Shown here is a 190-nucleotide RNA sequence from Homo sapiens, a member of the family "U2 spliceosomal RNA". The family has 208 seed sequences and 71,512 matches in Rfam 15.1. Rfam's curators write: U2 is a small nuclear RNA (snRNA) component of the spliceosome (involved in pre-mRNA splicing). Complementary binding between U2 snRNA (in an area lying towards the 5' end but 3' to hairpin I) and the branchpoint sequence (BPS) of the intron results the bulging out of an unpaired adenosine, on the BPS, which initiates a nucleophilic attack at the intronic 5' splice site, thus starting the first of two transesterification reactions that mediate splicing. A search with the family's covariance model found it, with a score of 163 bits. Rfam classes the family as a spliceosomal small nuclear RNA. Pairs were carried over by alignment from the consensus structure, which is taken from published work.
[Rfam]
RNA sequence: AUUGCUUCUUGGCCUUCUGGCUAAGAUCAUGUGCAGUAUCUGUUCUUACCAGUUUAAUAUCUGAUACAUCCUCUAUCUGAGGAUAAUAUAAUAAAUAGAUUUUUGGAGCAAGGAGAUGGAAUAGGAGCUUGCUCUGUCCACUCUACACAUUGGCCUGGAUUGCAGUACCUCCAGGAAUGGUGCACCCUCU
Numbered sequence: 001a002u003u004g005c006u007u008c009u010u011g012g013c014c015u016u017c018u019g020g021c022u023a024a025g026a027u028c029a030u031g032u033g034c035a036g037u038a039u040c041u042g043u044u045c046u047u048a049c050c051a052g053u054u055u056a057a058u059a060u061c062u063g064a065u066a067c068a069u070c071c072u073c074u075a076u077c078u079g080a081g082g083a084u085a086a087u088a089u090a091a092u093a094a095a096u097a098g099a100u101u102u103u104u105g106g107a108g109c110a111a112g113g114a115g116a117u118g119g120a121a122u123a124g125g126a127g128c129u130u131g132c133u134c135u136g137u138c139c140a141c142u143c144u145a146c147a148c149a150u151u152g153g154c155c156u157g158g159a160u161u162g163c164a165g166u167a168c169c170u171c172c173a174g175g176a177a178u179g180g181u182g183c184a185c186c187c188u189c190u
Stems, first nucleotide, its partner, number of pairs: 007026003011022004047066002050063003068084006112144004118138002124135004148182005154175006